[Rfam]
RNA sequence: GUAGCUAUAAUUCAAGGGUAGAAUUCCCGUAUGUGGCACGGUCAAUCUGAGUUCGAAUCUCAGUAGUUACC
Numbered sequence: 001g002u003a004g005c006u007a008u009a010a011u012u013c014a015a016g017g018g019u020a021g022a023a024u025u026c027c028c029g030u031a032u033g034u035g036g037c038a039c040g041g042u043c044a045a046u047c048u049g050a051g052u053u054c055g056a057a058u059c060u061c062a063g064u065a066g067u068u069a070c071c
Stems, first nucleotide, its partner, number of pairs: 001070007010024004027041004047063005
Dot-bracket structure: (((((((..((((.......))))..((((.......)))).....(((((.......)))))))))))).
RNA: tRNA
Organism: Candida albicans